The record is a 420-nucleotide sequence from Humitalea rosea, which matches "Bacterial RNase P class A" in Rfam.
It scores 250 bits against the family's covariance model.
RNA sequence: CCAGGUGGCCAGACGACCGCGGGCCGGGGAGCGAUCCCCGGUCGGAGGAAAGUCCGGGCUCCAUGGAAGGACGGUGCCGGCCAACGGCCGGCGAGGGUCAAACCUCAGGGAAAGUGCCACAGAAAACAAACCGCCCGGACGGGCGACCCCUUACGGGGUGACCCCUCCAGGCAUGGGUGAAACGGUGGGGCAAAAGCCCACCGCGCCCCCGGCAACGGGGGCGGCACGGCAAACCCCACCGGGAGCAAGGCCGAAUAGGGGCGGCCGGGCCGAGGCGGAGCGAUCCACCGGACGCCAGGGGCCUUUCAACCCGCCGCCCGGGUUGGCCGCGUGAAGCCUGCGGUGACGCAGGCUCCAGAGGAAUGGUCGUCCGCGCCCGCAAGGGCGUGACAGAACCCGGCUUAUCGGCCGCCUGGCACC
Numbered sequence: 001c002c003a004g005g006u007g008g009c010c011a012g013a014c015g016a017c018c019g020c021g022g023g024c025c026g027g028g029g030a031g032c033g034a035u036c037c038c039c040g041g042u043c044g045g046a047g048g049a050a051a052g053u054c055c056g057g058g059c060u061c062c063a064u065g066g067a068a069g070g071a072c073g074g075u076g077c078c079g080g081c082c083a084a085c086g087g088c089c090g091g092c093g094a095g096g097g098u099c100a101a102a103c104c105u106c107a108g109g110g111a112a113a114g115u116g117c118c119a120c121a122g123a124a125a126a127c128a129a130a131c132c133g134c135c136c137g138g139a140c141g142g143g144c145g146a147c148c149c150c151u152u153a154c155g156g157g158g159u160g161a162c163c164c165c166u167c168c169a170g171g172c173a174u175g176g177g178u179g180a181a182a183c184g185g186u187g188g189g190g191c192a193a194a195a196g197c198c199c200a201c202c203g204c205g206c207c208c209c210c211g212g213c214a215a216c217g218g219g220g221g222c223g224g225c226a227c228g229g230c231a232a233a234c235c236c237c238a239c240c241g242g243g244a245g246c247a248a249g250g251c252c253g254a255a256u257a258g259g260g261g262c263g264g265c266c267g268g269g270c271c272g273a274g275g276c277g278g279a280g281c282g283a284u285c286c287a288c289c290g291g292a293c294g295c296c297a298g299g300g301g302c303c304u305u306u307c308a309a310c311c312c313g314c315c316g317c318c319c320g321g322g323u324u325g326g327c328c329g330c331g332u333g334a335a336g337c338c339u340g341c342g343g344u345g346a347c348g349c350a351g352g353c354u355c356c357a358g359a360g361g362a363a364u365g366g367u368c369g370u371c372c373g374c375g376c377c378c379g380c381a382a383g384g385g386c387g388u389g390a391c392a393g394a395a396c397c398c399g400g401c402u403u404a405u406c407g408g409c410c411g412c413c414u415g416g417c418a419c420c
Stems, first nucleotide, its partner, number of pairs: 001416010011405001012371007020045001022043007050403003054400005059245004068306003072241005077091005092108001093106004109236002114234002116230003131176002133172003137168003141164003184202006203225001204223008249328004259319006298312003335354008